[Rfam]
RNA sequence: CCGGCACCGGUUCACCCCGAACACCGGGGACCCGGGGCC
Numbered sequence: 001c002c003g004g005c006a007c008c009g010g011u012u013c014a015c016c017c018c019g020a021a022c023a024c025c026g027g028g029g030a031c032c033c034g035g036g037g038c039c
Base pairs, nucleotide, nucleotide: 003039004038005037007035008034009033010032015029016028017027018026019025
A member of the RNA family "L31-Actinobacteria ribosomal protein leader" from Amycolatopsis jiangsuensis, 39 nucleotides long. It scores 47 bits against the family's covariance model.